Shown here is a 154-nucleotide RNA from Clostridium sp. CAG:411, a member of the family "glmS glucosamine-6-phosphate activated ribozyme aptamer".
Pairs were carried over by alignment from the consensus structure, which is taken from published work.
Rfam classes the family as a riboswitch.
A search with the family's covariance model found it, with a score of 61 bits.
RNA sequence: GAUUGCAUAACAGUAGGCUAUGGUAGUUCUACUAUGGUUGACGAGGUAAAGGGAGUAUCGAAUCUUCGGCGGAUGCCCUUUCGUAUUAUGGGAUACGUGAUAUACAGACAAACUGUCAGGUAACUGAAAAACAACAUCUGUAUAACCCAAAUAA
Numbered sequence: 001g002a003u004u005g006c007a008u009a010a011c012a013g014u015a016g017g018c019u020a021u022g023g024u025a026g027u028u029c030u031a032c033u034a035u036g037g038u039u040g041a042c043g044a045g046g047u048a049a050a051g052g053g054a055g056u057a058u059c060g061a062a063u064c065u066u067c068g069g070c071g072g073a074u075g076c077c078c079u080u081u082c083g084u085a086u087u088a089u090g091g092g093a094u095a096c097g098u099g100a101u102a103u104a105c106a107g108a109c110a111a112a113c114u115g116u117c118a119g120g121u122a123a124c125u126g127a128a129a130a131a132c133a134a135c136a137u138c139u140g141u142a143u144a145a146c147c148c149a150a151a152u153a154a
Stems, first nucleotide, its partner, number of pairs: 002030001049081005058069004082097006101144007114129001116127004
About this RNA: Lineage of the source: Bacteria > Bacillota > Eubacteriales > Clostridiaceae > Clostridium.